[Rfam]
RNA sequence: AGACAUGUGGGUCCCUCUCCUCCUCCCUGGGACCAACAUGAUCGCGGCGGUCUCUCUCCUCCUCCCUGAGACCGCCGCACGUAAUUCGGGGGCCCUCUCCUCCUCCCUGGGGUCCCGCUACUU
Numbered sequence: 001a002g003a004c005a006u007g008u009g010g011g012u013c014c015c016u017c018u019c020c021u022c023c024u025c026c027c028u029g030g031g032a033c034c035a036a037c038a039u040g041a042u043c044g045c046g047g048c049g050g051u052c053u054c055u056c057u058c059c060u061c062c063u064c065c066c067u068g069a070g071a072c073c074g075c076c077g078c079a080c081g082u083a084a085u086u087c088g089g090g091g092g093c094c095c096u097c098u099c100c101u102c103c104u105c106c107c108u109g110g111g112g113u114c115c116c117g118c119u120a121c122u123u
Stems, first nucleotide, its partner, number of pairs: 004040003008036001010034006045077010087117005093111003
Rfam assigns this 123-nucleotide sequence from Tropicibacter naphthalenivorans to the family "Alphaproteobacterial ar14". The pairing is the family consensus, mapped onto this sequence. A search with the family's covariance model found it, with a score of 61 bits. NCBI's taxonomy places the organism under Bacteria, Pseudomonadati, Pseudomonadota, Alphaproteobacteria, Tropicibacter. The family's RNA type in Rfam is small RNA.